Rfam assigns this 84-nucleotide sequence from Lactuca sativa to the family "Small nucleolar RNA U61". Its Rfam clan is "SNORD61 clan". The match comes from Rfam's covariance-model search (56 bits). Taxonomically the source falls in Lactuca (Eukaryota, Streptophytina, asterids, Cichorioideae). The family's consensus secondary structure was predicted with WAR.
[Rfam]
RNA sequence: GUGCCAUGAGGAAGAAGAAAUUGCUCCAGAAACAAGAUUUGAUCUUGCUUGUGAUGGUAGCAUCCUCUAAGAAGUUCUGAGCAC
Numbered sequence: 001g002u003g004c005c006a007u008g009a010g011g012a013a014g015a016a017g018a019a020a021u022u023g024c025u026c027c028a029g030a031a032a033c034a035a036g037a038u039u040u041g042a043u044c045u046u047g048c049u050u051g052u053g054a055u056g057g058u059a060g061c062a063u064c065c066u067c068u069a070a071g072a073a074g075u076u077c078u079g080a081g082c083a084c
Stems, first nucleotide, its partner, number of pairs: 001084004
Dot-bracket structure: ((((............................................................................))))